Bacterial large subunit ribosomal RNA: a 518-nucleotide part of an RNA from Chromobacterium violaceum. The organism belongs to Chromobacterium violaceum, within Bacteria. The family's consensus secondary structure is taken from published work.

RNA sequence: GACUAAGUGCAUCUGGUGGAUGCCUUGGCGAUCACAGGCGAUGAAGGACGUGUAAGCCUGCGAAAAGCGCGGGGGAGCUGGCAAUAGAGCUUUGAUCCCGCGAUGUCCGAAUGGGGAAACCCCUCCGCAAGGAGAUCCCUGACUGAAUACAUAGGUCAGUGGAGGCGAACCGAGUGAACUGAAACAUCUAAGUAACUCGAGGAACAGAAAUCAACCGAGAUUCCGUAAGUAGUGGCGAGCGAACGCGGAACAGCCUGUACGUGUUAUGGAUUGUGUUAGUGGAAGGUUAUGGAAAGGACCGCCAUAGUGGGUGAUAGCCCCGUACACGAAAACACAUUCCAAGGACUAGGCGUACGAGAAGUAGGGCGGGACACGCGAAAUCCUGUCUGAAGAUGGGGGGACCAUCCUCCAAGGCUAAAUACUCGUGAUCGACCGAUAGUGAACCAGUACCGUGAGGGAAAGGCGAAAAGAACCCCGGGAGGGGAGUGAAAUAGAACCUGAAACCGGAUGCAUACAAA
Numbered sequence: 001g002a003c004u005a006a007g008u009g010c011a012u013c014u015g016g017u018g019g020a021u022g023c024c025u026u027g028g029c030g031a032u033c034a035c036a037g038g039c040g041a042u043g044a045a046g047g048a049c050g051u052g053u054a055a056g057c058c059u060g061c062g063a064a065a066a067g068c069g070c071g072g073g074g075g076a077g078c079u080g081g082c083a084a085u086a087g088a089g090c091u092u093u094g095a096u097c098c099c100g101c102g103a104u105g106u107c108c109g110a111a112u113g114g115g116g117a118a119a120c121c122c123c124u125c126c127g128c129a130a131g132g133a134g135a136u137c138c139c140u141g142a143c144u145g146a147a148u149a150c151a152u153a154g155g156u157c158a159g160u161g162g163a164g165g166c167g168a169a170c171c172g173a174g175u176g177a178a179c180u181g182a183a184a185c186a187u188c189u190a191a192g193u194a195a196c197u198c199g200a201g202g203a204a205c206a207g208a209a210a211u212c213a214a215c216c217g218a219g220a221u222u223c224c225g226u227a228a229g230u231a232g233u234g235g236c237g238a239g240c241g242a243a244c245g246c247g248g249a250a251c252a253g254c255c256u257g258u259a260c261g262u263g264u265u266a267u268g269g270a271u272u273g274u275g276u277u278a279g280u281g282g283a284a285g286g287u288u289a290u291g292g293a294a295a296g297g298a299c300c301g302c303c304a305u306a307g308u309g310g311g312u313g314a315u316a317g318c319c320c321c322g323u324a325c326a327c328g329a330a331a332a333c334a335c336a337u338u339c340c341a342a343g344g345a346c347u348a349g350g351c352g353u354a355c356g357a358g359a360a361g362u363a364g365g366g367c368g369g370g371a372c373a374c375g376c377g378a379a380a381u382c383c384u385g386u387c388u389g390a391a392g393a394u395g396g397g398g399g400g401a402c403c404a405u406c407c408u409c410c411a412a413g414g415c416u417a418a419a420u421a422c423u424c425g426u427g428a429u430c431g432a433c434c435g436a437u438a439g440u441g442a443a444c445c446a447g448u449a450c451c452g453u454g455a456g457g458g459a460a461a462g463g464c465g466a467a468a469a470g471a472a473c474c475c476c477g478g479g480a481g482g483g484g485a486g487u488g489a490a491a492u493a494g495a496a497c498c499u500g501a502a503a504c505c506g507g508a509u510g511c512a513u514a515c516a517a518a
Base pairs, nucleotide, nucleotide: 007513008512009511010510011509012508013507014506015505016504022498023463024462027434028433029431030430031429032428033427034426035425036423037422038166039165046108047107048106049062050061051060068102069101070100071099072098073097074096077090078089079088113122114121115120123134124133125132126131136163137162138161139159140158141157142156143155144154170201171199172198173197174196175195181188182187211218212217221419222249223248224247225246226245232240233239252416253415254414255413260352261351262350265343267341268340269339270338272336273335274334275333276332277331279327280326281325285300286299287298288297303307309321310320311319364388365387366386367385368384369383370382371381395410396409397408398407399406450457451456473484474483475482476481